[Rfam]
RNA sequence: UAACAUCUUGAACAAUGGCCAUUGUAAGAGUAAGUGGUCCAUGAGUCAAUAACUCUCUUUGCAGAAAUGCAUGACAAAGCAUUGACUCCUAUUUCACCCUUACAAUGUCCAUUGAUUAAGAGGUU
Numbered sequence: 001u002a003a004c005a006u007c008u009u010g011a012a013c014a015a016u017g018g019c020c021a022u023u024g025u026a027a028g029a030g031u032a033a034g035u036g037g038u039c040c041a042u043g044a045g046u047c048a049a050u051a052a053c054u055c056u057c058u059u060u061g062c063a064g065a066a067a068u069g070c071a072u073g074a075c076a077a078a079g080c081a082u083u084g085a086c087u088c089c090u091a092u093u094u095c096a097c098c099c100u101u102a103c104a105a106u107g108u109c110c111a112u113u114g115a116u117u118a119a120g121a122g123g124u125u
Stems, first nucleotide, its partner, number of pairs: 003124002006121006013114006020107009030097002033094002043088002047084004
Shown here is a 125-nucleotide RNA sequence from Populus trichocarpa, a member of the family "MIR475 microRNA precursor family". Rfam links the family to the GO terms miRNA-mediated post-transcriptional gene silencing and RISC complex.